[Rfam]
RNA sequence: CCGUGCUAAGUGGGGAGUUAGCGGUGCCUUGUACUUGCAAUCCGCUCAGCAAGACUGAAUUCCACUUGUGAGGGCAAUGUAGUGAAGUCUGCCUUGACCGCACAAUGUUGACGUUCCGGUCCUACGCAAUAGAGCCUUAUGAACCAUGUCAGGUCCUGACGGAAGCAGCAUUAAGUAAGUCACUUUAUGUGCCGUAGGGUCGCCGGGAUUGAGUUGUUGCAUAGAGUAACGUUUGUUGCACUUCGCUCGAUCAAGUGGUGCACGG
Numbered sequence: 001c002c003g004u005g006c007u008a009a010g011u012g013g014g015g016a017g018u019u020a021g022c023g024g025u026g027c028c029u030u031g032u033a034c035u036u037g038c039a040a041u042c043c044g045c046u047c048a049g050c051a052a053g054a055c056u057g058a059a060u061u062c063c064a065c066u067u068g069u070g071a072g073g074g075c076a077a078u079g080u081a082g083u084g085a086a087g088u089c090u091g092c093c094u095u096g097a098c099c100g101c102a103c104a105a106u107g108u109u110g111a112c113g114u115u116c117c118g119g120u121c122c123u124a125c126g127c128a129a130u131a132g133a134g135c136c137u138u139a140u141g142a143a144c145c146a147u148g149u150c151a152g153g154u155c156c157u158g159a160c161g162g163a164a165g166c167a168g169c170a171u172u173a174a175g176u177a178a179g180u181c182a183c184u185u186u187a188u189g190u191g192c193c194g195u196a197g198g199g200u201c202g203c204c205g206g207g208a209u210u211g212a213g214u215u216g217u218u219g220c221a222u223a224g225a226g227u228a229a230c231g232u233u234u235g236u237u238g239c240a241c242u243u244c245g246c247u248c249g250a251u252c253a254a255g256u257g258g259u260g261c262a263c264g265g
Base pairs, nucleotide, nucleotide: 001265002264003263004262005261006260009056010055011054012030013029014028015027017025018024019023034053035052036051037050038049062258063257064256065255066254067253068252072248073247074246075245078240079239080238081237082236083235084234085233086232090231091230093226094225095224097222101219102218104215105214106213113209114208115207116206117205118204119203120202121198122197123196124195125194126193127189128188130187131186132185133184134183136179137178138177139176140175146171147170148169149168154163155162156161

Source information
Shown here is a 265-nucleotide RNA from Abyssicoccus albus, a member of the family "Bacterial large signal recognition particle RNA". The source organism's lineage runs through Bacteria, Bacillati, Bacilli, Abyssicoccaceae and Abyssicoccus. Rfam's curators write: The signal recognition particle (SRP) is a universally conserved ribonucleoprotein involved in the co-translational targeting of proteins to membranes.